[Rfam]
RNA sequence: AUAGAAUAAAGCUGUUGCGCUUAUAUAAGUUCAUAAUCGGUUGAGCGUUUCUACCAACUACCAUAAUAGUUGACUAUAAGGGUUAAAAGGAAAAAG
Numbered sequence: 001a002u003a004g005a006a007u008a009a010a011g012c013u014g015u016u017g018c019g020c021u022u023a024u025a026u027a028a029g030u031u032c033a034u035a036a037u038c039g040g041u042u043g044a045g046c047g048u049u050u051c052u053a054c055c056a057a058c059u060a061c062c063a064u065a066a067u068a069g070u071u072g073a074c075u076a077u078a079a080g081g082g083u084u085a086a087a088a089g090g091a092a093a094a095a096g
Base pairs, nucleotide, nucleotide: 018082020080021079022078023077024076025075029046030045031044032043033042055072056071057070058069059068060067
The family of this 96-nucleotide sequence from Lacrimispora saccharolytica is "Purine riboswitch aptamer". Pairs were carried over by alignment from the consensus structure, which is taken from published work. Gene Ontology term of the family: purine nucleobase biosynthetic process. A search with the family's covariance model found it, with a score of 52 bits. The source organism's lineage runs through Bacteria, Bacillota, Lachnospiraceae, Lacrimispora and Lacrimispora saccharolytica.